[Rfam]
RNA sequence: CUUUUUUACGCAUAAUAAACCACCCCUAUACAUUCUACUGUUCCUAUUAAAUUAGAAACAGGUAUAGGAAAACGUACUAUGUAUUUACACAGUUCAUGUUGUGUACUUCAUACAAUAAAAGAUACUGCCAUACGGCAAUAAAAAAAACCGUUAUCUGGCAGUACCCUUUUCAUGCCUAAAAUAAUAUUCCCUUUCCGGACGACGGUUUAAAUAGCUGCCGUCUCUCUUUUUAUACAGAAU
Numbered sequence: 001c002u003u004u005u006u007u008a009c010g011c012a013u014a015a016u017a018a019a020c021c022a023c024c025c026c027u028a029u030a031c032a033u034u035c036u037a038c039u040g041u042u043c044c045u046a047u048u049a050a051a052u053u054a055g056a057a058a059c060a061g062g063u064a065u066a067g068g069a070a071a072a073c074g075u076a077c078u079a080u081g082u083a084u085u086u087a088c089a090c091a092g093u094u095c096a097u098g099u100u101g102u103g104u105a106c107u108u109c110a111u112a113c114a115a116u117a118a119a120a121g122a123u124a125c126u127g128c129c130a131u132a133c134g135g136c137a138a139u140a141a142a143a144a145a146a147a148c149c150g151u152u153a154u155c156u157g158g159c160a161g162u163a164c165c166c167u168u169u170u171c172a173u174g175c176c177u178a179a180a181a182u183a184a185u186a187u188u189c190c191c192u193u194u195c196c197g198g199a200c201g202a203c204g205g206u207u208u209a210a211a212u213a214g215c216u217g218c219c220g221u222c223u224c225u226c227u228u229u230u231u232a233u234a235c236a237g238a239a240u
Base pairs, nucleotide, nucleotide: 002112004110007105008104011103013101014100015099016098017097029076030075031074033072034071036069038067039066040065041064043062044061045060047058048057078091080089081088082087123163124162125161126160127159128158129157130156132151133150134149135148197223198222199221200220201219203217204216205215206214207213

Record summary: Rfam assigns this 240-nucleotide RNA sequence from Oceanobacillus indicireducens to the family "Cis-regulator of HTH transcription factor". Rfam's curators write: This element was identified by RNA deep sequencing of Clostridioides difficile 630 where it is located immediately upstream of an uncharacterized HTH-type Transcriptional regulator. Homologues are found widely across firmicutes, consistently located 5' of transcriptional regulators of similar size and sequence, which strongly supports a cis-regulatory function. RNA is referred to as CD630_SQ2397 in ref. Note: the sequence is highly conserved and shows no evidence for covariation as per R-scape analysis. For this family Rfam cites "Genome-wide identification of regulatory RNAs in the human pathogen Clostridium difficile" (Soutourina et al., PLoS Genet, 2013).